[Rfam]
RNA sequence: GCCUGGUGGUUCCUUGAGUCAGCUUGUCUGUGCUGAUCCUUGAGGUUUUAUCUGACAGGCACAAAUUGAUUUCUGCAAUUUAAUGCUUGGAAGUUGCCAUUCCUGUGCACCUUCCACAGCCCGGUCGCAGAAACAUGU
Numbered sequence: 001g002c003c004u005g006g007u008g009g010u011u012c013c014u015u016g017a018g019u020c021a022g023c024u025u026g027u028c029u030g031u032g033c034u035g036a037u038c039c040u041u042g043a044g045g046u047u048u049u050a051u052c053u054g055a056c057a058g059g060c061a062c063a064a065a066u067u068g069a070u071u072u073c074u075g076c077a078a079u080u081u082a083a084u085g086c087u088u089g090g091a092a093g094u095u096g097c098c099a100u101u102c103c104u105g106u107g108c109a110c111c112u113u114c115c116a117c118a119g120c121c122c123g124g125u126c127g128c129a130g131a132a133a134c135a136u137g138u
Stems, first nucleotide, its partner, number of pairs: 001060004007050002012045006019036005073130001075128002078125003085120002088116003092112002095109003